[Rfam]
Shown here is a 120-nucleotide RNA from Selaginella moellendorffii, a member of the family "Small nucleolar RNA SNORD14". About the family: U14 small nucleolar RNA (U14 snoRNA) is required for early cleavages of eukaryotic precursor rRNAs. In yeasts, this molecule possess a stem-loop region (known as the Y-domain) which is essential for function. A similar structure, but with a different consensus sequence, is found in plants, but is absent in vertebrates. For this family Rfam cites "An essential domain in Saccharomyces cerevisiae U14 snoRNA is absent in vertebrates, but conserved in other yeasts" (Samarsky et al., Nucleic Acids Res, 1996). By type it is a C/D-box small nucleolar RNA. The family has 18 seed sequences and 4,559 matches in Rfam 15.1.
RNA sequence: UGCUCGUGAUGAUCAUUCUAAGGCUCCGUUCUCAAAACAUUCGCAGUGGCCGCCCGAGAGUUCUCGCCUUGCCGGGCUUGAGGAUUGAUGCGGCUCAACCUUCCUUGGAUGGCUGAAGCA
Numbered sequence: 001u002g003c004u005c006g007u008g009a010u011g012a013u014c015a016u017u018c019u020a021a022g023g024c025u026c027c028g029u030u031c032u033c034a035a036a037a038c039a040u041u042c043g044c045a046g047u048g049g050c051c052g053c054c055c056g057a058g059a060g061u062u063c064u065c066g067c068c069u070u071g072c073c074g075g076g077c078u079u080g081a082g083g084a085u086u087g088a089u090g091c092g093g094c095u096c097a098a099c100c101u102u103c104c105u106u107g108g109a110u111g112g113c114u115g116a117a118g119c120a
Base pairs, nucleotide, nucleotide: 001120002119003118004117060085061084062083063082064081065080